[Rfam]
Background
This 192-nucleotide sequence from Paenibacillus graminis belongs to the Rfam family "6S / SsrS RNA". Rfam classes the family as a non-coding RNA gene. The base pairs follow the family's consensus structure, which is taken from published work. On this family, see Chen et al., Molecular Cell 2017: "6S RNA Mimics B-Form DNA to Regulate Escherichia coli RNA Polymerase". It scores 78 bits against the family's covariance model. Taxonomically the source falls in Paenibacillus (Bacteria, Bacillati, Bacilli, Paenibacillaceae).

RNA sequence: UAAUUCCUGCGAUGUUCGUUACGGUUGCUCGUUGUUUUGAACCAAUGAUAAUGUCUUGGGAGAUCUACAUGAAGCGCAGCUGAACAGCCCUGUCUAUACGACCUGGGGAAUUCAAAAACGACUUCUGCGGUCACCCACCUGCUCUAGCAGGUUCAGAAGACACUGUAGCCGGACGGCAUAGGCGGGUUUUUC
Numbered sequence: 001u002a003a004u005u006c007c008u009g010c011g012a013u014g015u016u017c018g019u020u021a022c023g024g025u026u027g028c029u030c031g032u033u034g035u036u037u038u039g040a041a042c043c044a045a046u047g048a049u050a051a052u053g054u055c056u057u058g059g060g061a062g063a064u065c066u067a068c069a070u071g072a073a074g075c076g077c078a079g080c081u082g083a084a085c086a087g088c089c090c091u092g093u094c095u096a097u098a099c100g101a102c103c104u105g106g107g108g109a110a111u112u113c114a115a116a117a118a119c120g121a122c123u124u125c126u127g128c129g130g131u132c133a134c135c136c137a138c139c140u141g142c143u144c145u146a147g148c149a150g151g152u153u154c155a156g157a158a159g160a161c162a163c164u165g166u167a168g169c170c171g172g173a174c175g176g177c178a179u180a181g182g183c184g185g186g187u188u189u190u191u192c
Stems, first nucleotide, its partner, number of pairs: 002190002006186005012179004017175003033160001035158002038155006058136003062132004069126001071125003075120002083112002088108005